Rfam assigns this 126-nucleotide RNA to the family "PyrR binding site". It is annotated as a cis-regulatory element. On this family, see Bonner et al., Nucleic Acids Res 2001: "Molecular recognition of pyr mRNA by the Bacillus subtilis attenuation regulatory protein PyrR". Rfam 15.1 lists 1,498 matches to the family in 930 species.
RNA sequence: UAAGCCUUUAAAUCAGUCCCGUGAGGCUGAGAAGGAAACGGUUAAGAUAAUGGGGGGUAACUAUACCCAAUAUCUGUAAAUUAACUUGUUAACCUCUCGCCAAAAUUGGGUGAGAGGUUUUUUAUU
Numbered sequence: 001u002a003a004g005c006c007u008u009u010a011a012a013u014c015a016g017u018c019c020c021g022u023g024a025g026g027c028u029g030a031g032a033a034g035g036a037a038a039c040g041g042u043u044a045a046g047a048u049a050a051u052g053g054g055g056g057g058u059a060a061c062u063a064u065a066c067c068c069a070a071u072a073u074c075u076g077u078a079a080a081u082u083a084a085c086u087u088g089u090u091a092a093c094c095u096c097u098c099g100c101c102a103a104a105a106u107u108g109g110g111u112g113a114g115a116g117g118u119u120u121u122u123u124a125u126u
Stems, first nucleotide, its partner, number of pairs: 005035005013030006045075005051069002054067002057064002091119011